[Rfam]
RNA sequence: CGAGAUAGGGGUACAAGUUCUGCAGUAUUGCGUUCCUCUGGACCUAAGCAACGACCUGAAAGGGUAGCGACGAAGCUCGGCGUUAGUGGAGAGAGUCCCAGACGUGGUGUCUCCACUGACG
Numbered sequence: 001c002g003a004g005a006u007a008g009g010g011g012u013a014c015a016a017g018u019u020c021u022g023c024a025g026u027a028u029u030g031c032g033u034u035c036c037u038c039u040g041g042a043c044c045u046a047a048g049c050a051a052c053g054a055c056c057u058g059a060a061a062g063g064g065u066a067g068c069g070a071c072g073a074a075g076c077u078c079g080g081c082g083u084u085a086g087u088g089g090a091g092a093g094a095g096u097c098c099c100a101g102a103c104g105u106g107g108u109g110u111c112u113c114c115a116c117u118g119a120c121g
Base pairs, nucleotide, nucleotide: 001079002078003077004076006074008071009045010044011043012042014040015039021032022031023030024029048068049067056064057063082120083119084118085117086116087115088114089113090112091111092110098107099106100105
Dot-bracket structure: ((((.(.(((((.((.....((((....))))......)).))))..((......((.....))..))..)..).))))..(((((((((((.....(((....)))..))))))))))).
The family of this 121-nucleotide sequence is "Flavobacterium-1 RNA". Rfam classes the family as a small RNA.